[Rfam]
Nucleotides: 076
Base pairs, nucleotide, nucleotide: 004073005072006071007070008069009068011066012065013064014063015062016061017060018059019058022055023054024053025052026051027050029048030047031046
Number, partner (000 for none) and nucleotide at each position: 001000u002000g003000a004073g005072u006071g007070g008069u009068u010000u011066a012065g013064g014063u015062a016061g017060u018059u019058u020000c021000a022055u023054g024053u025052u026051g027050u028000u029048g030047g031046g032000a033000u034000c035000g036000u037000a038000u039000a040000u041000u042000u043000a044000a045000a046031c047030u048029c049000u050027g051026c052025a053024a054023c055022a056000u057000g058019a059018a060017a061016c062015u063014g064013u065012c066011u067000u068009a069008a070007u071006u072005g073004c074000c075000c076000c
Rfam assigns this 76-nucleotide RNA from Cyprinus carpio to the family "mir-196 microRNA precursor family". Lineage of the source: Eukaryota > Deuterostomia > Neopterygii > Cypriniformes > Cyprinus carpio. For this family Rfam cites "New microRNAs from mouse and human" (Lagos-Quintana et al., RNA, 2003).